[Rfam]
RNA sequence: UAGAAUAAUGUAGAUAAGGGAAGUCGGCAAAUUAGAUCCGUAACUUCGGGAAAAGGAUUGGCUCUAAGGGUUGGGUGCGUCGGGCCUUGUGCUUGACGCUUCGGGACCCGGCCUGGACUGGUUCGCAAGGACUGGACCGGGCUGGGACCUGGGGCAGAAGGCCUUGUGUUAUCGGCGCACGAUUAACAACCGACUUAGAACUGGUACGGACAAGGGGAAUCUGACUGUCUAAUUAAAACAUAGCAUUGCGAUGGCCAGAAAGUGGUGUUGACGCAAUGUGAUUUCUGCCCAGUGCUCUGAAUGUCAAAGUGAAGAAAUUCAACCAAGCGCGGGUAAACGGCGGGAGUAACUAUGACUCUCUUAAGGUAGCCAAAUGCCUCGUCAUCUAAUUAGUGACGCGCAUGAAUGGAUUAACGAGAUUCCCACUGUCCCUAUCUACUAUCUAGCGAAACCACAGCCAAGGGAACGGGCUUGGCAGA
Numbered sequence: 001u002a003g004a005a006u007a008a009u010g011u012a013g014a015u016a017a018g019g020g021a022a023g024u025c026g027g028c029a030a031a032u033u034a035g036a037u038c039c040g041u042a043a044c045u046u047c048g049g050g051a052a053a054a055g056g057a058u059u060g061g062c063u064c065u066a067a068g069g070g071u072u073g074g075g076u077g078c079g080u081c082g083g084g085c086c087u088u089g090u091g092c093u094u095g096a097c098g099c100u101u102c103g104g105g106a107c108c109c110g111g112c113c114u115g116g117a118c119u120g121g122u123u124c125g126c127a128a129g130g131a132c133u134g135g136a137c138c139g140g141g142c143u144g145g146g147a148c149c150u151g152g153g154g155c156a157g158a159a160g161g162c163c164u165u166g167u168g169u170u171a172u173c174g175g176c177g178c179a180c181g182a183u184u185a186a187c188a189a190c191c192g193a194c195u196u197a198g199a200a201c202u203g204g205u206a207c208g209g210a211c212a213a214g215g216g217g218a219a220u221c222u223g224a225c226u227g228u229c230u231a232a233u234u235a236a237a238a239c240a241u242a243g244c245a246u247u248g249c250g251a252u253g254g255c256c257a258g259a260a261a262g263u264g265g266u267g268u269u270g271a272c273g274c275a276a277u278g279u280g281a282u283u284u285c286u287g288c289c290c291a292g293u294g295c296u297c298u299g300a301a302u303g304u305c306a307a308a309g310u311g312a313a314g315a316a317a318u319u320c321a322a323c324c325a326a327g328c329g330c331g332g333g334u335a336a337a338c339g340g341c342g343g344g345a346g347u348a349a350c351u352a353u354g355a356c357u358c359u360c361u362u363a364a365g366g367u368a369g370c371c372a373a374a375u376g377c378c379u380c381g382u383c384a385u386c387u388a389a390u391u392a393g394u395g396a397c398g399c400g401c402a403u404g405a406a407u408g409g410a411u412u413a414a415c416g417a418g419a420u421u422c423c424c425a426c427u428g429u430c431c432c433u434a435u436c437u438a439c440u441a442u443c444u445a446g447c448g449a450a451a452c453c454a455c456a457g458c459c460a461a462g463g464g465a466a467c468g469g470g471c472u473u474g475g476c477a478g479a
Stems, first nucleotide, its partner, number of pairs: 001445004010439007018431003035059005044049001060202002063199006069191005075180009084162003088158001090156002099154007107146010118135007203207001215424007222416002226240003243279008254266004283410003287341003292338002294334004299330001302329003310321004342360006361365001381397005458475005
Rfam assigns this 479-nucleotide part of an RNA from Acaromyces ingoldii to the family "Eukaryotic large subunit ribosomal RNA". A search with the family's covariance model found it, with a score of 3356 bits. Taxonomically the source falls in Acaromyces (Eukaryota, Opisthokonta, Fungi, Exobasidiomycetes).